Rfam assigns this 194-nucleotide sequence from Phaseolus vulgaris to the family "MIR159 microRNA precursor family".
RNA sequence: GGUUAUGGAGUGGAGCUCCUUGAAGUCCAAUUGAGGAUCUUACUGGGUGGAUUGAGCUGCUUAGCUAUGGAUCCCACAGUUCUACCCAUCAGCAUGUUUUGUGGUAGUCUUGUGGCUUCCAUAUCUGGGGAGCUUCAUCUGCCUCUAUAGUAUCAUCCUUCUUUGGAUUGAAGGGAGCUCUACACCCUCUUCUC
Numbered sequence: 001g002g003u004u005a006u007g008g009a010g011u012g013g014a015g016c017u018c019c020u021u022g023a024a025g026u027c028c029a030a031u032u033g034a035g036g037a038u039c040u041u042a043c044u045g046g047g048u049g050g051a052u053u054g055a056g057c058u059g060c061u062u063a064g065c066u067a068u069g070g071a072u073c074c075c076a077c078a079g080u081u082c083u084a085c086c087c088a089u090c091a092g093c094a095u096g097u098u099u100u101g102u103g104g105u106a107g108u109c110u111u112g113u114g115g116c117u118u119c120c121a122u123a124u125c126u127g128g129g130g131a132g133c134u135u136c137a138u139c140u141g142c143c144u145c146u147a148u149a150g151u152a153u154c155a156u157c158c159u160u161c162u163u164u165g166g167a168u169u170g171a172a173g174g175g176a177g178c179u180c181u182a183c184a185c186c187c188u189c190u191u192c193u194c
Stems, first nucleotide, its partner, number of pairs: 013180008024169006036157001057132002060129003066123004074115001
On this family, see Jones-Rhoades and Bartel, Mol Cell 2004: "Computational identification of plant microRNAs and their targets, including a stress-induced miRNA". The base pairs follow the family's consensus structure, which was predicted with WAR. The organism belongs to Phaseolus, within Eukaryota.